[Rfam]
RNA sequence: GAGAGUUUUGAAUCAAUAAAGACUCUGUAGAUUGACUCAGAAACAAA
Dot-bracket structure: ......((.((.(((((.............))))).)).))......